The family of this 181-nucleotide RNA sequence is "malK-I RNA".

RNA sequence: UCCACAGCCCUCGUCACUCCACACCUAUGAUGAGCAAGCUGUGAAAAAAGGAGGAUAAAACCGGCCCGGGCUCGGGCUGCGGCAGUGUGGAGACCUGUCGCAACGCAGCGCGUCCCAUAGCGGACGCCUGUGAGCACACAGCAAGCGGAGGCUCUGUGUGCGGAGCCAGGAAAACAUGGCA
Numbered sequence: 001u002c003c004a005c006a007g008c009c010c011u012c013g014u015c016a017c018u019c020c021a022c023a024c025c026u027a028u029g030a031u032g033a034g035c036a037a038g039c040u041g042u043g044a045a046a047a048a049a050g051g052a053g054g055a056u057a058a059a060a061c062c063g064g065c066c067c068g069g070g071c072u073c074g075g076g077c078u079g080c081g082g083c084a085g086u087g088u089g090g091a092g093a094c095c096u097g098u099c100g101c102a103a104c105g106c107a108g109c110g111c112g113u114c115c116c117a118u119a120g121c122g123g124a125c126g127c128c129u130g131u132g133a134g135c136a137c138a139c140a141g142c143a144a145g146c147g148g149a150g151g152c153u154c155u156g157u158g159u160g161c162g163g164a165g166c167c168a169g170g171a172a173a174a175c176a177u178g179g180c181a
Base pairs, nucleotide, nucleotide: 006040007039008038010034011033012032013031014030015029016028064077065076066075067074069167070166071165072164073163078102079101080100081099082098083097084096085095087094088093105131106130107129108128110127111126112125113124134161135160136159137158138157139156140155141154144153145152146151